[Rfam]
RNA sequence: GAAAAGGCUAUGAAUGUGUCAGUAGAGCACUAUACUUUUUAAAGAGAGAGCAGGUCACCGGCUGAGAGCCAGCUUAAGGUAAGAUAGGAAUCGAAUUUCACACAGGAGCCGCAUUUGUGAACGCAGGAGAUCUUGUAAAUAGCAGAUGACGCCUGAUACACGUUACGUAUCUACAAAGUGCUUUUCUUCGGAUAAAGAAGAGAAGAAUCAGGGUGGUACCGCGGAAUCAUUCGUCCCUACU
Number, nucleotide and partner (000 for none) at each position: 001g000002a000003a000004a000005a000006g000007g109008c108009u000010a000011u000012g000013a000014a000015u104016g103017u102018g101019u000020c000021a000022g000023u000024a000025g092026a091027g000028c000029a000030c087031u000032a000033u000034a000035c000036u000037u000038u000039u076040u000041a000042a000043a000044g000045a000046g000047a000048g000049a000050g073051c072052a000053g070054g069055u068056c000057a000058c000059c000060g000061g000062c000063u000064g000065a000066g000067a000068g055069c054070c053071a000072g051073c050074u000075u000076a039077a000078g000079g000080u000081a000082a000083g000084a000085u000086a000087g030088g000089a000090a000091u026092c025093g000094a000095a000096u000097u000098u000099c000100a000101c018102a017103c016104a015105g000106g000107a000108g008109c007110c000111g000112c148113a147114u146115u145116u144117g143118u142119g000120a000121a000122c000123g000124c000125a000126g000127g000128a000129g000130a000131u000132c000133u000134u000135g000136u000137a000138a000139a000140u000141a000142g118143c117144a116145g115146a114147u113148g112149a000150c162151g161152c000153c000154u000155g000156a000157u000158a000159c000160a000161c151162g150163u000164u000165a000166c000167g000168u000169a000170u000171c000172u000173a000174c000175a000176a000177a000178g000179u000180g000181c205182u204183u203184u202185u201186c200187u199188u198189c197190g000191g000192a000193u000194a000195a000196a000197g189198a188199a187200g186201a185202g184203a183204a182205g181206a000207a000208u000209c000210a238211g237212g236213g235214u000215g000216g000217u000218a000219c000220c000221g234222c233223g232224g231225a230226a000227u000228c000229a000230u225231u224232c223233g222234u221235c213236c212237c211238u210239a000240c000241u000
RNA: T-box leader